[Rfam]
RNA sequence: UGGUGGUGAUGUCUGAACUCACGAUGGUCUUCAGAGUCCCUGUUGGUGAGGGGACUGCUGACAAUGUCAGUGGCAACUGCUGAACCAUCAGA
Number, nucleotide and partner (000 for none) at each position: 001u087002g086003g085004u084005g000006g000007u000008g000009a000010u000011g000012u000013c000014u000015g000016a000017a000018c000019u000020c000021a000022c000023g000024a000025u000026g000027g000028u000029c000030u000031u000032c000033a000034g000035a000036g000037u000038c000039c000040c000041u000042g000043u000044u000045g000046g000047u000048g000049a000050g000051g000052g000053g000054a000055c000056u000057g000058c000059u000060g000061a000062c000063a000064a000065u000066g000067u000068c000069a000070g000071u000072g000073g000074c000075a000076a000077c000078u000079g000080c000081u000082g000083a000084a004085c003086c002087a001088u000089c000090a000091g000092a000